[Rfam]
RNA: Clostridiales-1 RNA
RNA sequence: UAAUUACAGUGUUCCAAGGUCCAGCUCACCUGUGCUUGCACAAAGGUGAGCUGGACUUUGGAACACGCCCAAAUAUGAGCAUAAAAGAGAAGCGUCAGCUUUCCCAUAUGCGAAUAUUUGUAUGAAUUGCGAGAGUGCUCUGCACGGAGCAAUCCAUGUAAUUA
Numbered sequence: 001u002a003a004u005u006a007c008a009g010u011g012u013u014c015c016a017a018g019g020u021c022c023a024g025c026u027c028a029c030c031u032g033u034g035c036u037u038g039c040a041c042a043a044a045g046g047u048g049a050g051c052u053g054g055a056c057u058u059u060g061g062a063a064c065a066c067g068c069c070c071a072a073a074u075a076u077g078a079g080c081a082u083a084a085a086a087g088a089g090a091a092g093c094g095u096c097a098g099c100u101u102u103c104c105c106a107u108a109u110g111c112g113a114a115u116a117u118u119u120g121u122a123u124g125a126a127u128u129g130c131g132a133g134a135g136u137g138c139u140c141u142g143c144a145c146g147g148a149g150c151a152a153u154c155c156a157u158g159u160a161a162u163u164a
Stems, first nucleotide, its partner, number of pairs: 001164007010065004016059015031042004070120007079111004087104001089102005124155001126153005135145004